[Rfam]
The record is a 76-nucleotide RNA from Gouania willdenowi, which matches "mir-192/215 microRNA precursor family" in Rfam. Rfam describes the family as follows. This family represents the human microRNA (miRNA) precursors mir-192 and mir-215. The family has 48 seed sequences and 810 matches in Rfam 15.1. A search with the family's covariance model found it, with a score of 74 bits.

RNA sequence: ACAGGGUGAUGACCUAUGAAUUGACAGCCAGGGAUUUUCAACAUCUGCCUGUCAGUUCUGUAGGCCACUGCCGCGU
Numbered sequence: 001a002c003a004g005g006g007u008g009a010u011g012a013c014c015u016a017u018g019a020a021u022u023g024a025c026a027g028c029c030a031g032g033g034a035u036u037u038u039c040a041a042c043a044u045c046u047g048c049c050u051g052u053c054a055g056u057u058c059u060g061u062a063g064g065c066c067a068c069u070g071c072c073g074c075g076u
Stems, first nucleotide, its partner, number of pairs: 001076002005072004010067002013064004018058010029047003